[Rfam]
RNA sequence: GGUCAGUUCAGUCCGACCCCCCGGGACUGAACGUCGGCGGCCCUCGCUCCUCCCCCUGGCGGGGGCCGCCUCCC
Numbered sequence: 001g002g003u004c005a006g007u008u009c010a011g012u013c014c015g016a017c018c019c020c021c022c023g024g025g026a027c028u029g030a031a032c033g034u035c036g037g038c039g040g041c042c043c044u045c046g047c048u049c050c051u052c053c054c055c056c057u058g059g060c061g062g063g064g065g066c067c068g069c070c071u072c073c074c
Stems, first nucleotide, its partner, number of pairs: 002035001004033001006032009036070013
Dot-bracket structure: .(.(.(((((((((.........)))))))))).)(((((((((((((.........)))))))))))))....
RNA: 6C RNA
Organism: Saccharomonospora glauca